[Rfam]
RNA sequence: AAGUUGUUGCGGUUAAAAAGCUCGUAGUUGGAUUUCUGUUGAGGAUGACCGGUCCGCCUUCUGGGUGUGCAUCUGGCUCAGCCUUGACAUCUUCCUAAAGAACGUAUCUGCACUUCAUUGUGUGGUGCGGUAUUUAGGACAUUUACCUUGAGGAAAUUAGAGUGUUUCAAGCAAGCGAUUGCCUUGAAUACAUUAGCAUGGAAUAAUAAGAUAGGACCUCAGUUCUAUUUUGUUGGUUUCUAGAGCUGAGGUAAUGGUCGAUAGGGAUAGUUGGGGGCAUUCGUAUUUAACUGUCAGAGGUGAAAUUCUUGGAUUUGUUAAAGACGGACUACUGCGAAAGCAUUUGCCAAGGAUGUUUUCAUUGAUCAAGAACGAAAGUUAGGGGAUCGAAGACGAUCAGAUACCGUCCUAGUCUUAACCAUAAACUAUGCCAACUAGAGAUUGGAGGUCGUUACCUAUACGACUCCUUCAGCACCUUAUGAGAAAUCAAAGUCUUUGGGUUCCGGGGGGAGUAUGGUCGCAAGGCUGAAACUUAAAGGAAU
Numbered sequence: 001a002a003g004u005u006g007u008u009g010c011g012g013u014u015a016a017a018a019a020g021c022u023c024g025u026a027g028u029u030g031g032a033u034u035u036c037u038g039u040u041g042a043g044g045a046u047g048a049c050c051g052g053u054c055c056g057c058c059u060u061c062u063g064g065g066u067g068u069g070c071a072u073c074u075g076g077c078u079c080a081g082c083c084u085u086g087a088c089a090u091c092u093u094c095c096u097a098a099a100g101a102a103c104g105u106a107u108c109u110g111c112a113c114u115u116c117a118u119u120g121u122g123u124g125g126u127g128c129g130g131u132a133u134u135u136a137g138g139a140c141a142u143u144u145a146c147c148u149u150g151a152g153g154a155a156a157u158u159a160g161a162g163u164g165u166u167u168c169a170a171g172c173a174a175g176c177g178a179u180u181g182c183c184u185u186g187a188a189u190a191c192a193u194u195a196g197c198a199u200g201g202a203a204u205a206a207u208a209a210g211a212u213a214g215g216a217c218c219u220c221a222g223u224u225c226u227a228u229u230u231u232g233u234u235g236g237u238u239u240c241u242a243g244a245g246c247u248g249a250g251g252u253a254a255u256g257g258u259c260g261a262u263a264g265g266g267a268u269a270g271u272u273g274g275g276g277g278c279a280u281u282c283g284u285a286u287u288u289a290a291c292u293g294u295c296a297g298a299g300g301u302g303a304a305a306u307u308c309u310u311g312g313a314u315u316u317g318u319u320a321a322a323g324a325c326g327g328a329c330u331a332c333u334g335c336g337a338a339a340g341c342a343u344u345u346g347c348c349a350a351g352g353a354u355g356u357u358u359u360c361a362u363u364g365a366u367c368a369a370g371a372a373c374g375a376a377a378g379u380u381a382g383g384g385g386a387u388c389g390a391a392g393a394c395g396a397u398c399a400g401a402u403a404c405c406g407u408c409c410u411a412g413u414c415u416u417a418a419c420c421a422u423a424a425a426c427u428a429u430g431c432c433a434a435c436u437a438g439a440g441a442u443u444g445g446a447g448g449u450c451g452u453u454a455c456c457u458a459u460a461c462g463a464c465u466c467c468u469u470c471a472g473c474a475c476c477u478u479a480u481g482a483g484a485a486a487u488c489a490a491a492g493u494c495u496u497u498g499g500g501u502u503c504c505g506g507g508g509g510g511a512g513u514a515u516g517g518u519c520g521c522a523a524g525g526c527u528g529a530a531a532c533u534u535a536a537a538g539g540a541a542u
Stems, first nucleotide, its partner, number of pairs: 010505003018502001020373001022371002027366003264360004268355002271352002276348004282326002286322006293315001297308003334341002378419006388412001392408004430501003434493002437477002442472007451464003481488002507534003516527004
This 542-nucleotide part of an RNA from Symbiodinium sp. CCMP2456 belongs to the Rfam family "Eukaryotic small subunit ribosomal RNA". Taxonomically the source falls in Symbiodinium (Eukaryota, Alveolata, Suessiales, Symbiodiniaceae). A reference for the family is Yusupov et al. (2001), "Crystal structure of the ribosome at 5.5 A resolution", Science. The family's consensus secondary structure is taken from published work.